The record is a 213-nucleotide RNA sequence from Trinickia soli, which matches "Manganese Mn2+ riboswitch aptamer (yybP-ykoY)" in Rfam. The literature on the family includes a 2001 paper in Curr Biol by Argaman et al., "Novel small RNA-encoding genes in the intergenic regions of Escherichia coli".

[Rfam]
RNA sequence: CCGCCCCUCAUUGGGGAGUAGCCGCCCCGCCGCGUCCGCUGUAUCGCGGCGAUUGAAAACCAAUCGUCCAUUCGGGUCCGCCUCGUUCGAUCCACAGCGCGCACGCAUCGCGGGGGUGUCCGUCAACAUACUUGGCUCGCACACAGCCAUGGCGGGCACAGCCUUUGGCCUGGCGAGACCGAUGACUUUCGCGCACACCGCUUUUUAGGGCCC
Dot-bracket structure: .........................(((((...............................................................................))))).((((((((((.......(((((.......)))))))))))))))......................................................
Numbered sequence: 001c002c003g004c005c006c007c008u009c010a011u012u013g014g015g016g017a018g019u020a021g022c023c024g025c026c027c028c029g030c031c032g033c034g035u036c037c038g039c040u041g042u043a044u045c046g047c048g049g050c051g052a053u054u055g056a057a058a059a060c061c062a063a064u065c066g067u068c069c070a071u072u073c074g075g076g077u078c079c080g081c082c083u084c085g086u087u088c089g090a091u092c093c094a095c096a097g098c099g100c101g102c103a104c105g106c107a108u109c110g111c112g113g114g115g116g117u118g119u120c121c122g123u124c125a126a127c128a129u130a131c132u133u134g135g136c137u138c139g140c141a142c143a144c145a146g147c148c149a150u151g152g153c154g155g156g157c158a159c160a161g162c163c164u165u166u167g168g169c170c171u172g173g174c175g176a177g178a179c180c181g182a183u184g185a186c187u188u189u190c191g192c193g194c195a196c197a198c199c200g201c202u203u204u205u206u207a208g209g210g211c212c213c
Stems, first nucleotide, its partner, number of pairs: 026114005116159010133149005
Description: From the family's description: This RNA was originally discovered in E. coli during a large scale screen and was named SraF. The family was later found to exist upstream of related families of protein genes in many bacteria, including the the yybP and ykoK genes in B. subtilis. Lineage of the source: Bacteria > Pseudomonadota > Betaproteobacteria > Burkholderiaceae > Trinickia. Rfam links the family to the GO term manganese ion binding.